[Rfam]
RNA: c-di-GMP-I-GGC riboswitch aptamer
RNA sequence: CUAGAUAAAGCCAAAACCCGGGUAACCGGGUGACGGAAAGCCACGGGCCCUGCGAAUGGGCAGCCGGGUUGCCUGGG
Numbered sequence: 001c002u003a004g005a006u007a008a009a010g011c012c013a014a015a016a017c018c019c020g021g022g023u024a025a026c027c028g029g030g031u032g033a034c035g036g037a038a039a040g041c042c043a044c045g046g047g048c049c050c051u052g053c054g055a056a057u058g059g060g061c062a063g064c065c066g067g068g069u070u071g072c073c074u075g076g077g
Stems, first nucleotide, its partner, number of pairs: 001077001003074002011036002016031006034063001039070004044066003047061003